[Rfam]
RNA sequence: UGGAGGACUGAGAAGGUAAGACAGUUAAACUUUAUGCUGUAUCUUACUGGUUAUAGCCUCCAAAAUUAAAAUAGUGCAAUGGCAAAUCACGUUCCUCUCCUGAAAUGAGGGAAAGCAGUACUGCAUUUGCACACAAGAC
Numbered sequence: 001u002g003g004a005g006g007a008c009u010g011a012g013a014a015g016g017u018a019a020g021a022c023a024g025u026u027a028a029a030c031u032u033u034a035u036g037c038u039g040u041a042u043c044u045u046a047c048u049g050g051u052u053a054u055a056g057c058c059u060c061c062a063a064a065a066u067u068a069a070a071a072u073a074g075u076g077c078a079a080u081g082g083c084a085a086a087u088c089a090c091g092u093u094c095c096u097c098u099c100c101u102g103a104a105a106u107g108a109g110g111g112a113a114a115g116c117a118g119u120a121c122u123g124c125a126u127u128u129g130c131a132c133a134c135a136a137g138a139c
Stems, first nucleotide, its partner, number of pairs: 002061005015048004019042001021040005082130002086127001090123002097118002100115002
Record summary
The record is a 139-nucleotide RNA sequence from Nipponia nippon, which matches "Small nucleolar RNA SNORA47" in Rfam. The base pairs follow the family's consensus structure, which was predicted with WAR. The family's RNA type in Rfam is H/ACA-box small nucleolar RNA. Lineage of the source: Eukaryota > Metazoa > Aves > Neoaves > Nipponia.